[Rfam]
Annotation:
Shown here is a 119-nucleotide RNA sequence from Arthrobacter psychrochitiniphilus, a member of the family "SAM (S-adenosyl methionine) riboswitch aptamer". Pairs were carried over by alignment from the consensus structure, which is taken from published work.
RNA sequence: AGUAAUGAGUGCCAGCGUUAAGCCCUGACUUGCUGGCCGGCAACCCUCUUUCCGGCGGGGUGCCUCAGGUGACUACUCGGCAAACCAGCUACCUAGGCUGGCGUUUGCAAGCGUGAACU
Numbered sequence: 001a002g003u004a005a006u007g008a009g010u011g012c013c014a015g016c017g018u019u020a021a022g023c024c025c026u027g028a029c030u031u032g033c034u035g036g037c038c039g040g041c042a043a044c045c046c047u048c049u050u051u052c053c054g055g056c057g058g059g060g061u062g063c064c065u066c067a068g069g070u071g072a073c074u075a076c077u078c079g080g081c082a083a084a085c086c087a088g089c090u091a092c093c094u095a096g097g098c099u100g101g102c103g104u105u106u107g108c109a110a111g112c113g114u115g116a117a118c119u
Stems, first nucleotide, its partner, number of pairs: 001077004009038001011037006021030002039064003044060003048055002080108006086100004
The organism belongs to Arthrobacter, within Bacteria. The match comes from Rfam's covariance-model search (85 bits). Rfam links the family to the GO terms S-adenosylmethionine metabolic process and regulation of gene expression. From the family's description: SAM-IV is a mRNA element that regulates gene expression via direct sensing of S-adenosylmethionine (SAM or AdoMet). SAM-IV riboswitches share conserved nucleotide positions with the previously described SAM-I riboswitches sequence analysis and molecular recognition experiments suggest that SAM-I and SAM-IV riboswitches share similar ligand binding sites, but have different scaffolds.